[Rfam]
Nucleotides: 178
Stems, first nucleotide, its partner, number of pairs: 018077002021074005028067004034058002037055008101171008120149001122147001124145004
Number, partner (000 for none) and nucleotide at each position: 001000a002000c003000c004000u005000u006000c007000u008000u009000g010000u011000a012000u013000a014000a015000g016000c017000a018077c019076u020000g021074u022073g023072c024071u025070a026000a027000a028067a029066u030065u031064g032000c033000a034058g035057a036000c037055a038054c039053u040052a041051g042050g043049a044048c045000u046000a047000u048044g049043u050042c051041u052040u053039g054038g055037u056000u057035u058034u059000u060000g061000c062000a063000a064031u065030a066029a067028u068000g069000c070025u071024a072023g073022c074021a075000g076019a077018g078000u079000a080000c081000a082000c083000a084000c085000a086000a087000g088000a089000a090000g091000a092000a093000a094000a095000g096000u097000a098000a099000c100000a101171g102170c103169a104168c105167u106166a107165g108164a109000u110000u111000g112000u113000a114000a115000a116000g117000a118000c119000g120149g121000g122147g123000g124145u125144g126143g127142a128000c129000c130000u131000c132000u133000u134000u135000c136000u137000u138000a139000a140000u141000g142127u143126c144125c145124a146000a147122u148000g149120u150000c151000c152000u153000u154000u155000g156000u157000c158000u159000u160000a161000a162000g163000a164108u165107u166106u167105g168104g169103u170102g171101c172000a173000a174000u175000a176000g177000c178000a